Shown here is a 95-nucleotide sequence from Papaver somniferum, a member of the family "MIR535 microRNA precursor family". The family has 20 seed sequences and 544 matches in Rfam 15.1. Pairs were carried over by alignment from the consensus structure, which was predicted with RNAalifold. Rfam links the family to the GO terms RISC complex and miRNA-mediated post-transcriptional gene silencing. The organism belongs to Papaver, within Eukaryota. On this family, see Zeng et al., Nucleic Acids Res 2010: "Conservation and divergence of microRNAs and their functions in Euphorbiaceous plants".
[Rfam]
RNA sequence: AAGAUCAUAUGACACCGAGAGAAAGCACUCUUGUACACAAUCAUGUCCAUUUCAUGAGUGCAGACAGGCGUGCUCUCUCUCGUUGUCAUGCAAAG
Numbered sequence: 001a002a003g004a005u006c007a008u009a010u011g012a013c014a015c016c017g018a019g020a021g022a023a024a025g026c027a028c029u030c031u032u033g034u035a036c037a038c039a040a041u042c043a044u045g046u047c048c049a050u051u052u053c054a055u056g057a058g059u060g061c062a063g064a065c066a067g068g069c070g071u072g073c074u075c076u077c078u079c080u081c082g083u084u085g086u087c088a089u090g091c092a093a094a095g
Stems, first nucleotide, its partner, number of pairs: 010088005016082002020078002025073004030068005